The record is a 132-nucleotide sequence from Lynx canadensis, which matches "Small nucleolar RNA U109" in Rfam. It scores 90 bits against the family's covariance model. Taxonomically the source falls in Lynx (Eukaryota, Theria, Boreoeutheria, Carnivora). The base pairs follow the family's consensus structure, which was predicted with WAR.

RNA sequence: UUUCAUGUGGAAAUGUCUCCUCAUUCCUUUAUGAGCAGGACUGUAUUCAUAGCAUGCUGCAUUUUAAAAGGAGUGCUCAGAGCCACCGAUCUUACAUUAGAGAUUGAAUAGUAGCCUGUAUCUCCUGCAUAA
Numbered sequence: 001u002u003u004c005a006u007g008u009g010g011a012a013a014u015g016u017c018u019c020c021u022c023a024u025u026c027c028u029u030u031a032u033g034a035g036c037a038g039g040a041c042u043g044u045a046u047u048c049a050u051a052g053c054a055u056g057c058u059g060c061a062u063u064u065u066a067a068a069a070g071g072a073g074u075g076c077u078c079a080g081a082g083c084c085a086c087c088g089a090u091c092u093u094a095c096a097u098u099a100g101a102g103a104u105u106g107a108a109u110a111g112u113a114g115c116c117u118g119u120a121u122c123u124c125c126u127g128c129a130u131a132a
Stems, first nucleotide, its partner, number of pairs: 004056005016039003020035004070125004082112002087106007
Dot-bracket structure: ...(((((.......(((.((((........)))).)))............))))).............((((........((...(((((((......)))))))....)).........)))).......